Shown here is a 168-nucleotide RNA from endosymbiont of Acanthamoeba sp. UWC8, a member of the family "6S / SsrS RNA". NCBI's taxonomy places the organism under Bacteria, Pseudomonadati, Pseudomonadota, Alphaproteobacteria, Holosporaceae. Pairs were carried over by alignment from the consensus structure, which is taken from published work. The family has 150 seed sequences and 5,006 matches in Rfam 15.1.
RNA sequence: GAUAGACUGAGUGGUUCGUCGAUGGGGCUAAUUUCCUCCGGGGCCGAUAAGUAGCUACAUCGGGAGCCGUCCCUGACAUCUAACCCGGCGUGGUGAUGUUAAAUGGCGCCCACCUUAAUAUAAAGGGCCUGUAGCGGGAAGCUUACCAACGGCCAAGUCAGUUUAUCC
Numbered sequence: 001g002a003u004a005g006a007c008u009g010a011g012u013g014g015u016u017c018g019u020c021g022a023u024g025g026g027g028c029u030a031a032u033u034u035c036c037u038c039c040g041g042g043g044c045c046g047a048u049a050a051g052u053a054g055c056u057a058c059a060u061c062g063g064g065a066g067c068c069g070u071c072c073c074u075g076a077c078a079u080c081u082a083a084c085c086c087g088g089c090g091u092g093g094u095g096a097u098g099u100u101a102a103a104u105g106g107c108g109c110c111c112a113c114c115u116u117a118a119u120a121u122a123a124a125g126g127g128c129c130u131g132u133a134g135c136g137g138g139a140a141g142c143u144u145a146c147c148a149a150c151g152g153c154c155a156a157g158u159c160a161g162u163u164u165a166u167c168c
Stems, first nucleotide, its partner, number of pairs: 002166009012155004017151003036134002038131001040130003044126002062111003066107005075100006085093002